The family of this 73-nucleotide RNA from Labedaea rhizosphaerae is "tRNA". Transfer RNA (tRNA) molecules are approximately 80 nucleotides in length.
RNA sequence: GGGGCGUUAGCUCAAUUGGUAGAGCUGCGGACUUUUAAUCCGUAGGUUCUGGGUUCGAGCCCCAGGCGCCCUA
Number, nucleotide and partner (000 for none) at each position: 001g072002g071003g070004g069005c068006g067007u066008u000009a000010g025011c024012u023013c022014a000015a000016u000017u000018g000019g000020u000021a000022g013023a012024g011025c010026u000027g043028c042029g041030g040031a039032c000033u000034u000035u000036u000037a000038a000039u031040c030041c029042g028043u027044a000045g000046g000047u000048u000049c065050u064051g063052g062053g061054u000055u000056c000057g000058a000059g000060c000061c053062c052063c051064a050065g049066g007067c006068g005069c004070c003071c002072u001073a000